Shown here is a 115-nucleotide RNA sequence from Ziziphus jujuba, a member of the family "MIR477 microRNA precursor family".
[Rfam]
RNA sequence: GAAGACUCCAAAUUACCUCAAAGGCUUCCAAUAUUUCCUUAUGAUUAUGAAUAUACUGAUAACAUUCAGUAUACAUAUGGGAACGUUGGAAGCCUGCGAGGUCAUUUGAAGCCUU
Dot-bracket structure: ..((.(..(((((.(((((..(((((((((((....................................................)))))))))))..))))).)))))..).)).
Numbered sequence: 001g002a003a004g005a006c007u008c009c010a011a012a013u014u015a016c017c018u019c020a021a022a023g024g025c026u027u028c029c030a031a032u033a034u035u036u037c038c039u040u041a042u043g044a045u046u047a048u049g050a051a052u053a054u055a056c057u058g059a060u061a062a063c064a065u066u067c068a069g070u071a072u073a074c075a076u077a078u079g080g081g082a083a084c085g086u087u088g089g090a091a092g093c094c095u096g097c098g099a100g101g102u103c104a105u106u107u108g109a110a111g112c113c114u115u
Stems, first nucleotide, its partner, number of pairs: 003114002006111001009108005015102005022095011
The base pairs follow the family's consensus structure, which was predicted with WAR. Rfam 15.1 lists 63 matches to the family in 31 species. For this family Rfam cites "Novel and mechanical stress-responsive MicroRNAs in Populus trichocarpa that are absent from Arabidopsis" (Lu et al., Plant Cell, 2005).